The record is a 61-nucleotide sequence from Thermococcus onnurineus, which matches "Small nucleolar RNA sR45" in Rfam. The source organism's lineage runs through Archaea, Methanobacteriati, Thermococcaceae, Thermococcus and Thermococcus onnurineus.

RNA sequence: AGAAAUGAUGAGGCCGAGGACACCCGAGCGGAGGCGAUGAGGAAUCUUCGCUUCGCUGAUU
Numbered sequence: 001a002g003a004a005a006u007g008a009u010g011a012g013g014c015c016g017a018g019g020a021c022a023c024c025c026g027a028g029c030g031g032a033g034g035c036g037a038u039g040a041g042g043a044a045u046c047u048u049c050g051c052u053u054c055g056c057u058g059a060u061u
Stems, first nucleotide, its partner, number of pairs: 006058002010054005016049005021039002